[Rfam]
RNA sequence: GCGCGCCUUUUGCAGCUGAACAAAAUAUUUGUGUAGGUAGGUGCCAGAGUAAGCGAAUAUUUUGUUCAGCUGCAAAAGGCGCGC
Numbered sequence: 001g002c003g004c005g006c007c008u009u010u011u012g013c014a015g016c017u018g019a020a021c022a023a024a025a026u027a028u029u030u031g032u033g034u035a036g037g038u039a040g041g042u043g044c045c046a047g048a049g050u051a052a053g054c055g056a057a058u059a060u061u062u063u064g065u066u067c068a069g070c071u072g073c074a075a076a077a078g079g080c081g082c083g084c
Base pairs, nucleotide, nucleotide: 001084002083003082005080006079007078010077011074012073013072014071015070016069017068018067022063024061025060026059027058028057029056030055031054